RNA sequence: UGAGCUGACUCGGUAAUCGCUGCUUCAUUGAUGUCCUUAGGGAGACUGGUGGAGGGGAGGAAAGUCCGGGCUCCAUAGAGCAGGGUGCCAGGUAACGCCUGGGGGGCGCAAGCCUACGACAAGUGCAGCAGAGAGGAAACCGCCGAUGGCUUAAUCUUCUUUUAUUCUUCGGAGUAGAGAAGUAAGCACAGGUAAGGGUGAAAGGGUGCGGUAAGAGCGCACCGGACGUCUAGUAAUAGUGCGUUGCAAGGUAAACUCCACCCGGAGCAAGAUCAAAUAGGCCCUCGCAUAGCAUUGCUCGUGUUUGGGGGCGGGUAGAUUGCUUGAGCCUGUGAGCGAUUGCAGGCCUAGACGAAUGGUUACCACCGCGCAAGCGGGACAGAACCCGGCUUAUAUGUCGGCUCUAACU
Numbered sequence: 001u002g003a004g005c006u007g008a009c010u011c012g013g014u015a016a017u018c019g020c021u022g023c024u025u026c027a028u029u030g031a032u033g034u035c036c037u038u039a040g041g042g043a044g045a046c047u048g049g050u051g052g053a054g055g056g057g058a059g060g061a062a063a064g065u066c067c068g069g070g071c072u073c074c075a076u077a078g079a080g081c082a083g084g085g086u087g088c089c090a091g092g093u094a095a096c097g098c099c100u101g102g103g104g105g106g107c108g109c110a111a112g113c114c115u116a117c118g119a120c121a122a123g124u125g126c127a128g129c130a131g132a133g134a135g136g137a138a139a140c141c142g143c144c145g146a147u148g149g150c151u152u153a154a155u156c157u158u159c160u161u162u163u164a165u166u167c168u169u170c171g172g173a174g175u176a177g178a179g180a181a182g183u184a185a186g187c188a189c190a191g192g193u194a195a196g197g198g199u200g201a202a203a204g205g206g207u208g209c210g211g212u213a214a215g216a217g218c219g220c221a222c223c224g225g226a227c228g229u230c231u232a233g234u235a236a237u238a239g240u241g242c243g244u245u246g247c248a249a250g251g252u253a254a255a256c257u258c259c260a261c262c263c264g265g266a267g268c269a270a271g272a273u274c275a276a277a278u279a280g281g282c283c284c285u286c287g288c289a290u291a292g293c294a295u296u297g298c299u300c301g302u303g304u305u306u307g308g309g310g311g312c313g314g315g316u317a318g319a320u321u322g323c324u325u326g327a328g329c330c331u332g333u334g335a336g337c338g339a340u341u342g343c344a345g346g347c348c349u350a351g352a353c354g355a356a357u358g359g360u361u362a363c364c365a366c367c368g369c370g371c372a373a374g375c376g377g378g379a380c381a382g383a384a385c386c387c388g389g390c391u392u393a394u395a396u397g398u399c400g401g402c403u404c405u406a407a408c409u
Stems, first nucleotide, its partner, number of pairs: 002404008012364007020057002023054008062392003066389005071267004078300004083263005088102005103117001104115004118258002123256002125252002140197002142193003147190002149187004205223006224247001225245005230239003271321004281312006291305005328347008

Shown here is a 409-nucleotide RNA sequence from Aliivibrio fischeri, a member of the family "Bacterial RNase P class A". The sequence is in the family's curated seed alignment. By type it is a ribozyme.